The family of this 103-nucleotide RNA from Pseudoalteromonas piratica is "t44 RNA". It is annotated as a small RNA.
RNA sequence: AAACUUUAAUUUUUAACACACACACAUACCGGCACAUACACUUGGGUGCAGGGCGCUUAUAGUAAGCAAACUGUUGGUGCUAUGGGGUAUGUGGAGGCCUAAC
Numbered sequence: 001a002a003a004c005u006u007u008a009a010u011u012u013u014u015a016a017c018a019c020a021c022a023c024a025c026a027u028a029c030c031g032g033c034a035c036a037u038a039c040a041c042u043u044g045g046g047u048g049c050a051g052g053g054c055g056c057u058u059a060u061a062g063u064a065a066g067c068a069a070a071c072u073g074u075u076g077g078u079g080c081u082a083u084g085g086g087g088u089a090u091g092u093g094g095a096g097g098c099c100u101a102a103c
Stems, first nucleotide, its partner, number of pairs: 023093008035084004040078003048074004